[Rfam]
RNA: CRISPR RNA direct repeat element
Organism: Thermostaphylospora chromogena
RNA sequence: GUUGCUAUCCCUCCAGGGGUGAUCAGUGAC
Numbered sequence: 001g002u003u004g005c006u007a008u009c010c011c012u013c014c015a016g017g018g019g020u021g022a023u024c025a026g027u028g029a030c
Base pairs, nucleotide, nucleotide: 001030002029003028004027005026007020008019009018010017011016